A member of the RNA family "MIR5269 microRNA precursor family" from Medicago truncatula, 78 nucleotides long. Lineage of the source: Eukaryota > Viridiplantae > Fabales > Fabaceae > Medicago.

RNA sequence: UUGAUAUAAAUCAUUGUGGAUCUACACUUUAAAAAUUAGACCCACAUAAAGUAGUGAGACAUACAUUGAUUUUAUCAA
Numbered sequence: 001u002u003g004a005u006a007u008a009a010a011u012c013a014u015u016g017u018g019g020a021u022c023u024a025c026a027c028u029u030u031a032a033a034a035a036u037u038a039g040a041c042c043c044a045c046a047u048a049a050a051g052u053a054g055u056g057a058g059a060c061a062u063a064c065a066u067u068g069a070u071u072u073u074a075u076c077a078a
Stems, first nucleotide, its partner, number of pairs: 001078006008072006015065004023056002026052006